[Rfam]
RNA: Nitrogen regulated small RNA
Organism: Pseudomonas aeruginosa
RNA sequence: AACGAAGAUUUCGGGGGCCUCGGUACAGGCAGGCUGGGGAAUCCCCUCUUUUACACCCGGCGGCAGACGCAGCAUCCGCGCGCAACCGCCACACCCGUUUCGGGGACCUCGGUACAGGCAGGCUGAGAACUCCCCUCUUUUAUGCCCGGCGGUAGCGCAGCGAUCCGCGCCUCCGCCCUCCCGUUUGGGGACCUCGGUACAGGCAGGCUGAGAAUUCCCCCUUUUAUUCCCGGCCG
Number, nucleotide and partner (000 for none) at each position: 001a000002a000003c000004g000005a000006a000007g000008a000009u000010u000011u000012c000013g046014g045015g044016g043017g042018c039019c038020u037021c036022g035023g034024u033025a000026c000027a000028g000029g000030c000031a000032g000033g024034c023035u022036g021037g020038g019039g018040a000041a000042u017043c016044c015045c014046c013047u000048c000049u000050u000051u000052u000053a000054c000055a000056c000057c000058c000059g090060g089061c088062g087063g086064c000065a000066g000067a000068c082069g081070c080071a000072g079073c078074a000075u000076c000077c000078g073079c072080g070081c069082g068083c000084a000085a000086c063087c062088g061089c060090c059091a000092c000093a000094c000095c000096c000097g000098u000099u000100u000101c000102g135103g134104g133105g132106a131107c000108c127109u126110c125111g124112g123113u122114a000115c000116a000117g000118g000119c000120a000121g000122g113123c112124u111125g110126a109127g108128a000129a000130c000131u106132c105133c104134c103135c102136u000137c000138u000139u000140u000141u000142a000143u000144g000145c000146c000147c000148g177149g176150c175151g174152g173153u000154a000155g170156c169157g168158c167159a000160g000161c000162g000163a000164u000165c000166c000167g158168c157169g156170c155171c000172u000173c152174c151175g150176c149177c148178c000179u000180c000181c000182c000183g000184u000185u000186u000187g220188g219189g218190g217191a216192c000193c212194u211195c210196g209197g208198u207199a000200c000201a000202g000203g000204c000205a000206g000207g198208c197209u196210g195211a194212g193213a000214a000215u000216u191217c190218c189219c188220c187221c000222u000223u000224u000225u000226a000227u000228u000229c000230c000231c000232g000233g000234c000235c000236g000